[Rfam]
RNA sequence: UUUUUAUCAAGAGACGGAGGAGAGAGUCAGCUCGUGGAUCCCGCGCCAACCUGCCAAGGCAAGGUGGUACUGCUGACAGCGAUAAGAG
Numbered sequence: 001u002u003u004u005u006a007u008c009a010a011g012a013g014a015c016g017g018a019g020g021a022g023a024g025a026g027u028c029a030g031c032u033c034g035u036g037g038a039u040c041c042c043g044c045g046c047c048a049a050c051c052u053g054c055c056a057a058g059g060c061a062a063g064g065u066g067g068u069a070c071u072g073c074u075g076a077c078a079g080c081g082a083u084a085a086g087a088g
Stems, first nucleotide, its partner, number of pairs: 001088008013044001015043003022033003028075003045068004050064002052061003072080001
SAM riboswitch aptamer (S box leader): an 88-nucleotide RNA from Copranaerobaculum intestinale. The base pairs follow the family's consensus structure, which is taken from published work. It scores 47 bits against the family's covariance model. NCBI's taxonomy places the organism under Bacteria, Erysipelotrichia, Erysipelotrichales, Erysipelotrichaceae, Copranaerobaculum.